Background
The family of this 101-nucleotide sequence from Sporomusa malonica is "Purine riboswitch aptamer". The base pairs follow the family's consensus structure, which is taken from published work. Rfam describes the family as follows. Riboswitches are metabolite binding domains within certain messenger RNAs that serve as precision sensors for their corresponding targets. The organism belongs to Sporomusa, within Bacteria. Rfam links the family to the GO term purine nucleobase biosynthetic process.
RNA sequence: GUAGACCAAGUAAAUAUUAAUCGUAUAAUUUUGGGGAUAUGGCCCAGAAGUCUCUACCGGCAACCGUAAAUUGCCUGUCUACGUCUCUUUGCUACCCCGAA
Numbered sequence: 001g002u003a004g005a006c007c008a009a010g011u012a013a014a015u016a017u018u019a020a021u022c023g024u025a026u027a028a029u030u031u032u033g034g035g036g037a038u039a040u041g042g043c044c045c046a047g048a049a050g051u052c053u054c055u056a057c058c059g060g061c062a063a064c065c066g067u068a069a070a071u072u073g074c075c076u077g078u079c080u081a082c083g084u085c086u087c088u089u090u091g092c093u094a095c096c097c098c099g100a101a
Base pairs, nucleotide, nucleotide: 019086022083023082024081025080029049030048031047032046033045034044035043058077059075060074061073062072063071